This 82-nucleotide RNA sequence from Electrophorus electricus belongs to the Rfam family "tRNA".

RNA sequence: GACGAGGUGGCCGAGAGGUUAAGGCGAUGGACUGCUAAUCCAUUGUGCUGUGCACACGUGGGUUCGAAUCCCACCUUCGUCG
Number, nucleotide and partner (000 for none) at each position: 001g081002a080003c079004g078005a077006g076007g075008u000009g000010g025011c024012c023013g000014a000015g000016a000017g000018g000019u000020u000021a000022a000023g012024g011025c010026g000027a043028u042029g041030g040031a039032c000033u000034g000035c000036u000037a000038a000039u031040c030041c029042a028043u027044u000045g000046u000047g000048c000049u000050g000051u000052g000053c000054a000055c000056a000057c000058g074059u073060g072061g071062g070063u000064u000065c000066g000067a000068a000069u000070c062071c061072c060073a059074c058075c007076u006077u005078c004079g003080u002081c001082g000
By type it is a transfer RNA. The source organism's lineage runs through Eukaryota, Gnathostomata, Teleostei, Osteoglossocephalai and Electrophorus. Pairs were carried over by alignment from the consensus structure, which is taken from published work.